[Rfam]
RNA: SAM/SAH riboswitch aptamer
RNA sequence: UCCCCGUCACAACGGCUUCCUGGCGUGUCGGGCAGACCAUAAUGGAGCG
Numbered sequence: 001u002c003c004c005c006g007u008c009a010c011a012a013c014g015g016c017u018u019c020c021u022g023g024c025g026u027g028u029c030g031g032g033c034a035g036a037c038c039a040u041a042a043u044g045g046a047g048c049g
Stems, first nucleotide, its partner, number of pairs: 004031003008027003013022002015048003019045002